[Rfam]
The record is a 46-nucleotide RNA sequence from Salarias fasciatus, which matches "Histone 3' UTR stem-loop" in Rfam. It is annotated as a cis-regulatory element. Its family is annotated with mRNA 3'-end processing by stem-loop binding and cleavage in the Gene Ontology.
RNA sequence: CCAAAGGCUCUUUUAAGAGCCACCCACUUAUCUGAAGAUCACGUCU
Numbered sequence: 001c002c003a004a005a006g007g008c009u010c011u012u013u014u015a016a017g018a019g020c021c022a023c024c025c026a027c028u029u030a031u032c033u034g035a036a037g038a039u040c041a042c043g044u045c046u
Base pairs, nucleotide, nucleotide: 006021007020008019009018010017011016

Description:
Rfam describes the family as follows. The mRNAs of metazoan histone genes lack a poly-A tail. 3' end processing occurs at a site between a highly conserved stem-loop (modelled by this family) and a purine rich region around 20 nts downstream (the histone downstream element, or HDE). The stem-loop is bound by a 31 kDa stem-loop binding protein (SLBP - also termed the histone hairpin binding protein, or HBP). Together with U7 snRNA binding of the HDE, SLBP binding nucleate s the formation of the processing complex. The histone 3' UTR stem-loop is also involved in nucleocytoplasmic transport of the mRNA, and in stability regulation and translation efficiency in the cytoplasm. The base pairs follow the family's consensus structure, which is taken from published work.